[Rfam]
RNA sequence: CUUCUGGGUCGGUCUGGAAGACUAGUGAUUUUGUUGUUUCUAGUGUAAGAGGCAAACAACAAAUCUUAGUCUCCAAACUGCCCCGGAAA
Numbered sequence: 001c002u003u004c005u006g007g008g009u010c011g012g013u014c015u016g017g018a019a020g021a022c023u024a025g026u027g028a029u030u031u032u033g034u035u036g037u038u039u040c041u042a043g044u045g046u047a048a049g050a051g052g053c054a055a056a057c058a059a060c061a062a063a064u065c066u067u068a069g070u071c072u073c074c075a076a077a078c079u080g081c082c083c084c085g086g087a088a089a
Stems, first nucleotide, its partner, number of pairs: 002088007010080004015075003019072005025067001027065005033060006